[Rfam]
RNA sequence: GGGGGUGAUCGGUUUCGACGGUGGUCGUGUUUCGAGGAGAAGCGGGCCGAGGAUGCAGACUUAUCUCGUAAACGAUGUCUGCAAAACAAUAGGUGCCGAUUCCAAGCGCACCGACUUCGCACUCGCCGCCUGAGCGAGUCCUGAAGUCCGUAAGCCCGGGGUAGCUUCCGCUCCGGUUCCUUGCGUCAUCUAGGGAGCCACUGCUUGUAACGUUCGUCGUUGACGUUGCAGGGACUCUAAGACGACUGGGCCUGUCAGCUACGUGUCUGCGCGAGUGCUGAGGCCGAGAAAAUCCACAGCAGACUGCGCCCGGAGAAGUCCUGGAUUUGCGUCACCGGACCGGGGUUCGAUUCCCCGCACCUCCACCA
Numbered sequence: 001g002g003g004g005g006u007g008a009u010c011g012g013u014u015u016c017g018a019c020g021g022u023g024g025u026c027g028u029g030u031u032u033c034g035a036g037g038a039g040a041a042g043c044g045g046g047c048c049g050a051g052g053a054u055g056c057a058g059a060c061u062u063a064u065c066u067c068g069u070a071a072a073c074g075a076u077g078u079c080u081g082c083a084a085a086a087c088a089a090u091a092g093g094u095g096c097c098g099a100u101u102c103c104a105a106g107c108g109c110a111c112c113g114a115c116u117u118c119g120c121a122c123u124c125g126c127c128g129c130c131u132g133a134g135c136g137a138g139u140c141c142u143g144a145a146g147u148c149c150g151u152a153a154g155c156c157c158g159g160g161g162u163a164g165c166u167u168c169c170g171c172u173c174c175g176g177u178u179c180c181u182u183g184c185g186u187c188a189u190c191u192a193g194g195g196a197g198c199c200a201c202u203g204c205u206u207g208u209a210a211c212g213u214u215c216g217u218c219g220u221u222g223a224c225g226u227u228g229c230a231g232g233g234a235c236u237c238u239a240a241g242a243c244g245a246c247u248g249g250g251c252c253u254g255u256c257a258g259c260u261a262c263g264u265g266u267c268u269g270c271g272c273g274a275g276u277g278c279u280g281a282g283g284c285c286g287a288g289a290a291a292a293u294c295c296a297c298a299g300c301a302g303a304c305u306g307c308g309c310c311c312g313g314a315g316a317a318g319u320c321c322u323g324g325a326u327u328u329g330c331g332u333c334a335c336c337g338g339a340c341c342g343g344g345g346u347u348c349g350a351u352u353c354c355c356c357g358c359a360c361c362u363c364c365a366c367c368a
Base pairs, nucleotide, nucleotide: 001364002363003362004361005360006359007358019337020336021335022334023333024332025331032325033324035322036321037320038319043312044311045310046309047308048068049067050066051065052064054083055082056081057080058079059078060077119141121139122138123137124136125135126134149185150184151183152182153181154180156176157175158174159173160172161171162170164198165197166196167195168194169193204232205231206230207229208228209227210226211225212224216246217245218244219243220242249285250284251283252282253281256280257279258278262273263272265304266303267302268301271297341357342356343355344354345353

Shown here is a 368-nucleotide RNA sequence from Sanguibacter sp. Leaf3, a member of the family "transfer-messenger RNA". It is annotated as a non-coding RNA gene. The organism belongs to Sanguibacter, within Bacteria. Pairs were carried over by alignment from the consensus structure, which is taken from published work.